[Rfam]
RNA: Purine riboswitch aptamer
Organism: Brevibacillus borstelensis
RNA sequence: AAUUGAACAUAGCUGAUGACUCGUAUAAUUUUGGGAAUUGGCCCAUGAGUUUCUACCGGGUGACCGUAAAUCGCCUGACUACGAGUGAACGAGCGACCAGG
Numbered sequence: 001a002a003u004u005g006a007a008c009a010u011a012g013c014u015g016a017u018g019a020c021u022c023g024u025a026u027a028a029u030u031u032u033g034g035g036a037a038u039u040g041g042c043c044c045a046u047g048a049g050u051u052u053c054u055a056c057c058g059g060g061u062g063a064c065c066g067u068a069a070a071u072c073g074c075c076u077g078a079c080u081a082c083g084a085g086u087g088a089a090c091g092a093g094c095g096a097c098c099a100g101g
Stems, first nucleotide, its partner, number of pairs: 019086007029048002032045004057077007